[Rfam]
Shown here is a 66-nucleotide sequence from Marinobacterium nitratireducens, a member of the family "Xanthine riboswitch aptamer (NMT1 RNA)". Gene Ontology term of the family: purine nucleobase binding. The family's consensus secondary structure is taken from published work. The literature on the family includes a 2020 paper in RNA by Yu and Breaker, "A bacterial riboswitch class senses xanthine and uric acid to regulate genes associated with purine oxidation".

RNA sequence: UAAAAGAGUAGAAGCGGUCAGGAACCGAAUGGCGCUCAGCCAUCCAUCCGGGACAUUGCUCUUGCA
Numbered sequence: 001u002a003a004a005a006g007a008g009u010a011g012a013a014g015c016g017g018u019c020a021g022g023a024a025c026c027g028a029a030u031g032g033c034g035c036u037c038a039g040c041c042a043u044c045c046a047u048c049c050g051g052g053a054c055a056u057u058g059c060u061c062u063u064g065c066a
Stems, first nucleotide, its partner, number of pairs: 005062006015051001018053002021049002024047001027044002

Taxonomically the source falls in Marinobacterium (Bacteria, Pseudomonadati, Gammaproteobacteria, Oceanospirillales).